[Rfam]
RNA sequence: CUGGGAUGAGGUAGUAGGUUGUAUAGCUUUAGGGUCACACCCAUGCUGGGCGAUAACUAUACAGCCUACUGUCUUUCUCAG
Numbered sequence: 001c002u003g004g005g006a007u008g009a010g011g012u013a014g015u016a017g018g019u020u021g022u023a024u025a026g027c028u029u030u031a032g033g034g035u036c037a038c039a040c041c042c043a044u045g046c047u048g049g050g051c052g053a054u055a056a057c058u059a060u061a062c063a064g065c066c067u068a069c070u071g072u073c074u075u076u077c078u079c080a081g
Base pairs, nucleotide, nucleotide: 001081002080003079004078005077006076008075009074010073011072012071013070014069015068016067017066018065019064020063021062022061023060024059025058026057032042033041034040035039044052045051